[Rfam]
RNA sequence: AAUUCACUUGUAUAAUAGAUUACGCAGGAAGUUUUAAGGGCGGUGGCUGUCUUUUCCCUUGCGAGGUGAGGCCCAUGGGAACAUGGAAUAAUCUUCAGGAAGGUUUCACAGUCAAUGAGCGUCUUCCAGACACUCUCGUUGAUGUUGCUGUUUGCAAUGUUUAUUUUAGCGUUGCUAACAUGCAUC
Number, nucleotide and partner (000 for none) at each position: 001a000002a000003u000004u000005c000006a000007c000008u000009u000010g000011u000012a000013u000014a000015a000016u000017a000018g000019a000020u000021u000022a000023c000024g000025c000026a000027g000028g000029a000030a000031g000032u000033u000034u000035u000036a000037a000038g000039g000040g000041c000042g000043g158044u157045g000046g155047c154048u000049g000050u000051c000052u000053u000054u000055u000056c000057c000058c000059u000060u000061g000062c000063g095064a094065g093066g092067u091068g000069a089070g000071g000072c086073c000074c000075a000076u000077g000078g000079g000080a000081a000082c000083a000084u000085g000086g072087a000088a000089u069090a000091a067092u066093c065094u064095u063096c000097a000098g000099g000100a000101a000102g000103g000104u000105u000106u000107c000108a000109c000110a000111g000112u000113c000114a000115a000116u000117g137118a136119g135120c000121g133122u132123c000124u130125u000126c000127c000128a000129g000130a124131c000132a122133c121134u000135c119136u118137c117138g000139u000140u000141g000142a000143u000144g000145u000146u000147g000148c000149u000150g000151u000152u000153u000154g047155c046156a000157a044158u043159g000160u000161u000162u000163a185164u184165u000166u182167u000168a000169g179170c000171g000172u000173u000174g000175c000176u000177a000178a000179c169180a000181u000182g166183c000184a164185u163186c000